[Rfam]
RNA sequence: AUGCAUCUGUUUGACAGACCCGAAGCAGUUACUGUCUGCUUCUAGAUUUCCAUUAAAGAUGCAAGAAAAGAGCUUCCUCGUGCUUUCUGUCUUUCUGAUUGCAAUAGCCAAGACUGAAUGGAGGAACACAGAG
Number, nucleotide and partner (000 for none) at each position: 001a000002u063003g062004c061005a060006u059007c058008u057009g000010u000011u000012u052013g051014a000015c000016a049017g048018a047019c000020c045021c000022g000023a041024a040025g039026c038027a037028g036029u000030u000031a000032c000033u000034g000035u000036c028037u027038g026039c025040u024041u023042c000043u000044a000045g020046a000047u018048u017049u016050c000051c013052a012053u000054u000055a000056a000057a008058g007059a006060u005061g004062c003063a002064a000065g000066a000067a000068a000069a000070g000071a000072g000073c000074u000075u125076c124077c123078u122079c121080g000081u000082g000083c116084u000085u000086u113087c112088u111089g000090u000091c107092u106093u000094u104095c000096u000097g000098a000099u000100u000101g000102c000103a000104a094105u000106a092107g091108c000109c000110a000111a088112g087113a086114c000115u000116g083117a000118a000119u000120g000121g079122a078123g077124g076125a075126a000127c000128a000129c000130a000131g000132a000133g000
The family of this 133-nucleotide RNA sequence from Nannospalax galili is "Small nucleolar RNA SNORA31". The family has 5 seed sequences and 2,094 matches in Rfam 15.1. The family's RNA type in Rfam is H/ACA-box small nucleolar RNA. The base pairs follow the family's consensus structure, which was predicted with RNAalifold. ACA31 (SNORA31) belongs to the H/ACA class of snoRNAs which are thought to guide the sites of modification of uridines to pseudouridines. ACA31 is predicted to guide the pseudouridylation of U3713 in 28S rRNA and U218 in 18S rRNA. This family includes the mouse homologue snoMBI-161.